[Rfam]
RNA sequence: CGGGGCAGGGUGGAAUUCCCGACCGGCAGUGAAAGCCUGCGAGCCGCAUAUGCGGUUGACUCGGUGAAAUUCCGAGGCCGACGGUAAAAGUCCGGAUGGGAG
Dot-bracket structure: (......(((.......))).[[((((((.....[[))))..(((........)))...(((((.......)))))]])).(((.....]]))).......)
A member of the RNA family "FMN riboswitch aptamer (RFN element)" from Caldanaerobacter subterraneus, 102 nucleotides long. Pairs were carried over by alignment from the consensus structure, which is taken from published work. The source organism's lineage runs through Bacteria, Thermoanaerobacterales, Caldanaerobacter, Caldanaerobacter subterraneus and Caldanaerobacter subterraneus subsp. tengcongensis.